[Rfam]
The record is a 90-nucleotide RNA sequence from Muntiacus reevesi, which matches "mir-544 microRNA precursor family" in Rfam. A reference for the family is Chiang et al. (2010), "Mammalian microRNAs: experimental evaluation of novel and previously annotated genes", Genes Dev. Gene Ontology terms of the family: RISC complex and miRNA-mediated post-transcriptional gene silencing. NCBI's taxonomy places the organism under Eukaryota, Bilateria, Euteleostomi, Theria, Muntiacus.
RNA sequence: AUAACCUGGAGAGCUUGUUAAAAUGCAGUUUCUGAUUCAGUAGGUUGGGGUGGGAUUCUGCAUUUGUAACAAGCUUCCACAUGAUGCUGA
Numbered sequence: 001a002u003a004a005c006c007u008g009g010a011g012a013g014c015u016u017g018u019u020a021a022a023a024u025g026c027a028g029u030u031u032c033u034g035a036u037u038c039a040g041u042a043g044g045u046u047g048g049g050g051u052g053g054g055a056u057u058c059u060g061c062a063u064u065u066g067u068a069a070c071a072a073g074c075u076u077c078c079a080c081a082u083g084a085u086g087c088u089g090a
Stems, first nucleotide, its partner, number of pairs: 004082001009077003014073007021065003025061004031055003